[Rfam]
A member of the RNA family "mir-8834 microRNA precursor family" from Canis lupus, 105 nucleotides long.

RNA sequence: AGGAGGAACAGCCCCAGUGGCGGGGCCAGCUCUGCAGCCCCGGAGUCAGCUCCCGCAGUCACCACGGAGCUCUCCGUCUGCAGGGCCUGGAGGCUCCGGGGCGGG
Dot-bracket structure: .((((...((((((....(((((((..(((((((.....(.(.............).)......))))))))))))))....))).)))....))))........

Notes: Rfam links the family to the GO terms RISC complex and miRNA-mediated post-transcriptional gene silencing. Rfam 15.1 lists 13,926 matches to the family in 17 species. A search with the family's covariance model found it, with a score of 81 bits. NCBI's taxonomy places the organism under Eukaryota, Metazoa, Craniata, Laurasiatheria, Canis lupus. The base pairs follow the family's consensus structure, which was predicted with RNAalifold.